[Rfam]
RNA sequence: CCGGCUUUGGCGCAAUGGUAGCGCGAUUGACUGUAGUAAUUAUCUGUUAUCAAUCGGUUGCUAGUUCGAGUCUGGCAAGCCGGA
Numbered sequence: 001c002c003g004g005c006u007u008u009g010g011c012g013c014a015a016u017g018g019u020a021g022c023g024c025g026a027u028u029g030a031c032u033g034u035a036g037u038a039a040u041u042a043u044c045u046g047u048u049a050u051c052a053a054u055c056g057g058u059u060g061c062u063a064g065u066u067c068g069a070g071u072c073u074g075g076c077a078a079g080c081c082g083g084a
Stems, first nucleotide, its partner, number of pairs: 001083007010024004026054005060076005
Shown here is an 84-nucleotide RNA sequence from Dictyostelium purpureum, a member of the family "tRNA". Rfam describes the family as follows. Transfer RNA (tRNA) molecules are approximately 80 nucleotides in length. The source organism's lineage runs through Eukaryota, Amoebozoa, Dictyostelia, Dictyosteliales and Dictyostelium. Rfam classes the family as a transfer RNA. Pairs were carried over by alignment from the consensus structure, which is taken from published work.